Small nucleolar RNA U61: a 78-nucleotide RNA sequence from Solanum commersonii. The family is grouped with related families in Rfam's "SNORD61 clan". The family has 8 seed sequences and 401 matches in Rfam 15.1. The match comes from Rfam's covariance-model search (78 bits). The family's RNA type in Rfam is C/D-box small nucleolar RNA. Rfam links the family to the GO terms nucleolus and RNA processing.
RNA sequence: GUGCUUUGAUGAAAAAAUCUCGUGUCGGAGACUUUGGUCUGUGAUGGCUUACACAACCCUCUAAGAAGUUCUGAGCAC
Number, nucleotide and partner (000 for none) at each position: 001g078002u077003g076004c075005u000006u000007u000008g000009a000010u000011g000012a000013a000014a000015a000016a000017a000018u000019c000020u000021c000022g000023u000024g000025u000026c000027g000028g000029a000030g000031a000032c000033u000034u000035u000036g000037g000038u000039c000040u000041g000042u000043g000044a000045u000046g000047g000048c000049u000050u000051a000052c000053a000054c000055a000056a000057c000058c000059c000060u000061c000062u000063a000064a000065g000066a000067a000068g000069u000070u000071c000072u000073g000074a000075g004076c003077a002078c001